[Rfam]
RNA sequence: CCCCAUCGAUUAAGUCAAGUGUCUAUCCCUCCUCAUGGACUGGCGCUGUUACAUCAAUGGGAGAUUAAAUACGACUCGCUCCCCUGCGGCCGUUAUGGUUGCGGGUAGACGUGCUGCCGUCUUGGUGGCGCGUCGCUAGAGUCCGCGUGUCCCGUUUGAGUUGAGGACUGCCUCUGCUUUGCCCUCGGCUUUGCAGCUAGAUGGCGGUUUUCUUAGUAACGUUUCACACAUCU
Numbered sequence: 001c002c003c004c005a006u007c008g009a010u011u012a013a014g015u016c017a018a019g020u021g022u023c024u025a026u027c028c029c030u031c032c033u034c035a036u037g038g039a040c041u042g043g044c045g046c047u048g049u050u051a052c053a054u055c056a057a058u059g060g061g062a063g064a065u066u067a068a069a070u071a072c073g074a075c076u077c078g079c080u081c082c083c084c085u086g087c088g089g090c091c092g093u094u095a096u097g098g099u100u101g102c103g104g105g106u107a108g109a110c111g112u113g114c115u116g117c118c119g120u121c122u123u124g125g126u127g128g129c130g131c132g133u134c135g136c137u138a139g140a141g142u143c144c145g146c147g148u149g150u151c152c153c154g155u156u157u158g159a160g161u162u163g164a165g166g167a168c169u170g171c172c173u174c175u176g177c178u179u180u181g182c183c184c185u186c187g188g189c190u191u192u193g194c195a196g197c198u199a200g201a202u203g204g205c206g207g208u209u210u211u212c213u214u215a216g217u218a219a220c221g222u223u224u225c226a227c228a229c230a231u232c233u
Stems, first nucleotide, its partner, number of pairs: 003060004018047006026039002072145001073143005082105002085103007108134012147227003153221003163212004169206004176194002181189002

Small nucleolar RNA snR191: a 233-nucleotide RNA sequence from Karstenula rhodostoma. Taxonomically the source falls in Karstenula rhodostoma (Eukaryota, Dikarya, Pezizomycotina, Pleosporales). A search with the family's covariance model found it, with a score of 53 bits. For this family Rfam cites "A snoRNA that guides the two most conserved pseudouridine modifications within rRNA confers a growth advantage in yeast" (Badis et al., RNA, 2003). Gene Ontology terms of the family: nucleolus and RNA processing. It is annotated as an H/ACA-box small nucleolar RNA.